[Rfam]
RNA: chrB-b RNA
RNA sequence: CGGGGACAACACAGGCUCCCCGCCAGACGGGCUUCCCGUCCAAGCCCUGU
Number, nucleotide and partner (000 for none) at each position: 001c022002g021003g020004g019005g018006a017007c000008a000009a000010c000011a050012c049013a048014g047015g046016c000017u006018c005019c004020c003021c002022g001023c000024c000025a000026g040027a039028c038029g037030g036031g000032c000033u000034u000035c000036c030037c029038g028039u027040c026041c000042a000043a000044g000045c000046c015047c014048u013049g012050u011